Overview: Rfam assigns this 94-nucleotide RNA to the family "L4-Archaeoglobi ribosomal protein leades". Rfam classes the family as a cis-regulatory leader.
[Rfam]
RNA sequence: CUGAUUACUGCGCAAGGGUGUAUAUAGGUCUUGACCGACCAGCCCUUCUCGCUGAUUGUGAAGGAUUAAGCGAGAAACAGCGCAUAACUGUCAG
Numbered sequence: 001c002u003g004a005u006u007a008c009u010g011c012g013c014a015a016g017g018g019u020g021u022a023u024a025u026a027g028g029u030c031u032u033g034a035c036c037g038a039c040c041a042g043c044c045c046u047u048c049u050c051g052c053u054g055a056u057u058g059u060g061a062a063g064g065a066u067u068a069a070g071c072g073a074g075a076a077a078c079a080g081c082g083c084a085u086a087a088c089u090g091u092c093a094g
Base pairs, nucleotide, nucleotide: 001094002093003092004091005090009084010083011082012081013080014046016045017044018043023041027040028039029038030037048074049073050072051071052070053068054067055066056065057064
The literature on the family includes a 2020 paper in BMC Microbiol by Eckert and Weinberg, "Discovery of 20 novel ribosomal leader candidates in bacteria and archaea".
Pairs were carried over by alignment from the consensus structure, which is taken from published work.